[Rfam]
RNA sequence: CGUGAUAUAGGGAUUCAAAGUCAUAUUUUUACAUGCUUGCAUGAGAAAAAAUAUGACCUUGAAGACCGAACAUACAUGAGUAAGUAGCACGAUAGUGCGGAUUACGAAUGUAUGCAGGAUUGCGAGAAUGAAAUGGAGCAAUCCGAUAUCACG
Dot-bracket structure: (((((((...(..(..((.(((((((((((.((((....))))...))))))))))).))..)..)....(((((((..((((...((((....))))...))))..)))))))..(((((((....((...))...)))))))..)))))))
The family of this 153-nucleotide sequence from Butyrivibrio sp. INlla14 is "Clostridiales-1 RNA". A search with the family's covariance model found it, with a score of 111 bits. By type it is a small RNA. Taxonomically the source falls in Butyrivibrio (Bacteria, Bacillota, Clostridia, Lachnospiraceae).